[Rfam]
Molybdenum/Tungsten riboswitch aptamer (Moco RNA motif): a 194-nucleotide RNA from Colwellia sp. 12G3. A reference for the family is Regulski et al. (2008), "in molybdenum cofactor and tungsten cofactor metabolism", Mol Microbiol. It scores 58 bits against the family's covariance model.
RNA sequence: UUUUAUUUAUAACACCGAGCUAUCACAGCUAACAUUGCUUCAUUUUUUGGCUAGUUCAAGCCAGUUUAUUGCCAGUAAUCAUGUUGUGACACGCCGUAGCUAAGCCCAUGGUUAUCAUGGUUUUUAGUUGCCAGGGUUAACAAGGAAACGCGUUAGCCUCCCUACAUUUGGAAAGGUGACAUGCUAACAGACAA
Number, nucleotide and partner (000 for none) at each position: 001u000002u000003u000004u187005a000006u000007u000008u000009a000010u000011a000012a000013c178014a177015c176016c175017g000018a000019g094020c093021u091022a000023u089024c088025a087026c086027a085028g084029c083030u000031a000032a000033c000034a079035u078036u077037g076038c075039u074040u000041c000042a000043u000044u000045u000046u000047u000048u000049g000050g000051c000052u000053a000054g000055u000056u000057c000058a000059a000060g000061c000062c000063a000064g000065u000066u000067u000068a000069u000070u000071g000072c000073c000074a039075g038076u037077a036078a035079u034080c000081a000082u000083g029084u028085u027086g026087u025088g024089a023090c000091a021092c000093g020094c019095c000096g131097u130098a129099g128100c127101u126102a125103a124104g123105c000106c000107c000108a000109u000110g000111g000112u000113u000114a000115u000116c000117a000118u000119g000120g000121u000122u000123u104124u103125u102126a101127g100128u099129u098130g097131c096132c000133a000134g159135g158136g157137u156138u155139a154140a153141c152142a000143a000144g149145g000146a000147a000148a000149c144150g000151c000152g141153u140154u139155a138156g137157c136158c135159u134160c171161c170162c000163u000164a000165c000166a000167u000168u000169u000170g161171g160172a000173a000174a000175g016176g015177u014178g013179a000180c000181a000182u000183g000184c000185u000186a000187a004188c000189a000190g000191a000192c000193a000194a000